Rfam assigns this 62-nucleotide sequence from Carlito syrichta to the family "Gag/pol translational readthrough site". Rfam links the family to the GO term viral translational readthrough. NCBI's taxonomy places the organism under Eukaryota, Eumetazoa, Gnathostomata, Sarcopterygii, Carlito.
RNA sequence: UAGGGGGGUUGGGGUUCGGAACCUCUCCCCGAACCCAGGGUAACUCUUAAGGUGGGGAGGCA
Numbered sequence: 001u002a003g004g005g006g007g008g009u010u011g012g013g014g015u016u017c018g019g020a021a022c023c024u025c026u027c028c029c030c031g032a033a034c035c036c037a038g039g040g041u042a043a044c045u046c047u048u049a050a051g052g053u054g055g056g057g058a059g060g061c062a
Stems, first nucleotide, its partner, number of pairs: 008041003012036004016031001018029002022060006